Notes: This 194-nucleotide RNA from Collinsella sp. CAG:289 belongs to the Rfam family "FMN riboswitch aptamer (RFN element)". The match comes from Rfam's covariance-model search (94 bits). NCBI's taxonomy places the organism under Bacteria, Actinomycetota, Coriobacteriales, Coriobacteriaceae, Collinsella.
RNA sequence: UCGCUGUUUCAGGGCGGGGUGAAAUUCCCCACUGGCGGUAAAUCGGCCGGCGCAAUCCCGCGUCGCGUCCCCGGCAACGGUUGCCAGGUGCACAUCCGAUAAGCCCGCGAGCCUGGCUGGCAUUGGGUUGUCUGCAGGCCGAUCCGGUGAGAAUCCGGUGCCAACGGUUAGAGUCCGGAUGGAAGAGGCAGGUG
Number, nucleotide and partner (000 for none) at each position: 001u000002c000003g000004c191005u190006g189007u188008u187009u186010c185011a000012g000013g000014g000015c000016g000017g029018g028019g027020u000021g000022a000023a000024a000025u000026u000027c019028c018029c017030c000031a174032c173033u163034g162035g108036c107037g106038g105039u000040a000041a000042a000043u000044c000045g000046g000047c000048c000049g000050g000051c000052g000053c000054a000055a000056u000057c000058c000059c000060g000061c000062g000063u000064c000065g000066c000067g000068u000069c000070c000071c000072c000073g000074g000075c000076a000077a000078c000079g000080g000081u000082u000083g000084c000085c000086a000087g000088g000089u000090g000091c000092a000093c000094a000095u000096c000097c000098g000099a000100u000101a000102a000103g000104c000105c038106c037107g036108c035109g000110a000111g139112c138113c137114u136115g135116g000117c000118u000119g000120g000121c000122a000123u000124u000125g000126g000127g000128u000129u000130g000131u000132c000133u000134g000135c115136a114137g113138g112139c111140c000141g000142a000143u000144c158145c157146g156147g155148u000149g000150a000151g000152a000153a000154u000155c147156c146157g145158g144159u000160g000161c000162c034163a033164a000165c177166g176167g175168u000169u000170a000171g000172a000173g032174u031175c167176c166177g165178g000179a000180u000181g000182g000183a000184a000185g010186a009187g008188g007189c006190a005191g004192g000193u000194g000